[Rfam]
RNA sequence: CGGCCGGGUAGGGUGGGGGGAGUCGCCAUCCCCUGCGCCCGCGGCGUAAGGCGGGCACCAGUAACCCCUAGGCUCGGGCGACUGGCUGCCCAGUUCCUGGGUCUCGAAUGAGGGUCGCCCGGCGGGGCUCGGCGGGCGUGGACGCCUCCUCCGAAGGGAGGAGGUGCACCACGCUAAUCGGGGGAAGCGGCUAGGCCCGGAAGGGAGCAACCGUGCCCGACCGCCGGCGUUCGCCGGAUCCGGCCCGAACGGGACCUAGGGGUAAGGCUGGGCAGCCAUAGCUCGGGCUUAGGGGGGCCGGCCC
Numbered sequence: 001c002g003g004c005c006g007g008g009u010a011g012g013g014u015g016g017g018g019g020g021a022g023u024c025g026c027c028a029u030c031c032c033c034u035g036c037g038c039c040c041g042c043g044g045c046g047u048a049a050g051g052c053g054g055g056c057a058c059c060a061g062u063a064a065c066c067c068c069u070a071g072g073c074u075c076g077g078g079c080g081a082c083u084g085g086c087u088g089c090c091c092a093g094u095u096c097c098u099g100g101g102u103c104u105c106g107a108a109u110g111a112g113g114g115u116c117g118c119c120c121g122g123c124g125g126g127g128c129u130c131g132g133c134g135g136g137c138g139u140g141g142a143c144g145c146c147u148c149c150u151c152c153g154a155a156g157g158g159a160g161g162a163g164g165u166g167c168a169c170c171a172c173g174c175u176a177a178u179c180g181g182g183g184g185a186a187g188c189g190g191c192u193a194g195g196c197c198c199g200g201a202a203g204g205g206a207g208c209a210a211c212c213g214u215g216c217c218c219g220a221c222c223g224c225c226g227g228c229g230u231u232c233g234c235c236g237g238a239u240c241c242g243g244c245c246c247g248a249a250c251g252g253g254a255c256c257u258a259g260g261g262g263u264a265a266g267g268c269u270g271g272g273c274a275g276c277c278a279u280a281g282c283u284c285g286g287g288c289u290u291a292g293g294g295g296g297g298c299c300g301g302c303c304c
Base pairs, nucleotide, nucleotide: 002303003302004301005300006299007298009296012059013058014057015056016034017033018032019031020030021029038055039054040053041052042051065295066294067293068292069291070290071289072288073287074286075285076284077283080279083278084277085276086275087274088273089272090271091270092269093268094267095261096260097259098258099257100256101255102254103253104252105251106250112246113245114244115243116242117241119237120236121235122234123233124232125231126230127228128227130226131225132224133223134222135175136174137173138172139171140170141169143166144165145164146163147162148161149160150159151158152157178220179219180218182217183216188213189212190211196205197204198203
Rfam assigns this 304-nucleotide RNA from Sulfolobales archaeon SCGC AB-777_J03 to the family "Archaeal signal recognition particle RNA". Rfam classes the family as a non-coding RNA gene. The match comes from Rfam's covariance-model search (152 bits). Taxonomically the source falls in Sulfolobales (Archaea, Thermoproteati, Thermoproteota, Thermoprotei). For this family Rfam cites "Prediction of signal recognition particle RNA genes" (Regalia et al., Nucleic Acids Res, 2002).